[Rfam]
RNA: Small nucleolar RNA SNORA51
Organism: Dipodomys ordii
RNA sequence: UAUCUUCUUGCUGCUUACCACAGGUGCUAACGAUCAGUUCCUACACGGACCACGUAGAAAGAGGAGACAAAGUAAAACCACCCCCUAUGCGCCUCAGCCAGGCUCUGGGCCUGGUGAGUAUUGUGAAUGGGGAGACAGGU
Number, nucleotide and partner (000 for none) at each position: 001u000002a000003u067004c066005u065006u064007c063008u062009u000010g000011c000012u000013g000014c000015u000016u000017a000018c000019c000020a000021c000022a000023g050024g046025u045026g044027c000028u000029a000030a000031c000032g000033a000034u000035c000036a000037g000038u000039u000040c000041c000042u000043a000044c026045a025046c024047g000048g000049a000050c023051c000052a000053c000054g000055u000056a000057g000058a000059a000060a000061g000062a008063g007064g006065a005066g004067a003068c000069a000070a000071a000072g000073u000074a000075a000076a000077a000078c000079c000080a000081c132082c131083c130084c129085c000086u127087a000088u000089g000090c000091g000092c000093c000094u000095c118096a000097g000098c114099c113100a112101g111102g110103c109104u000105c000106u000107g000108g000109g103110c102111c101112u100113g099114g098115u000116g000117a000118g095119u000120a000121u000122u000123g000124u000125g000126a000127a086128u000129g084130g083131g082132g081133a000134g000135a000136c000137a000138g000139g000140u000